[Rfam]
RNA sequence: UGUGCCGCCGGACGGUGGCGACCGCGAGACGUUGGGGAGCGUCGGUGACCGGCCGCCUCCGGAAUGCCGGACCGCAGCCCAGGGACUGCGACCGUGCGCUCGGCGAAGGAG
Numbered sequence: 001u002g003u004g005c006c007g008c009c010g011g012a013c014g015g016u017g018g019c020g021a022c023c024g025c026g027a028g029a030c031g032u033u034g035g036g037g038a039g040c041g042u043c044g045g046u047g048a049c050c051g052g053c054c055g056c057c058u059c060c061g062g063a064a065u066g067c068c069g070g071a072c073c074g075c076a077g078c079c080c081a082g083g084g085a086c087u088g089c090g091a092c093c094g095u096g097c098g099c100u101c102g103g104c105g106a107a108g109g110a111g
Base pairs, nucleotide, nucleotide: 006105007104008103009102010101012100013062015060018056019055020054022052023051024050028043029042031040032039033038066097067096068094069093070092073090074089075088076087077086
Shown here is a 111-nucleotide RNA sequence, a member of the family "Actinomyces-1 RNA".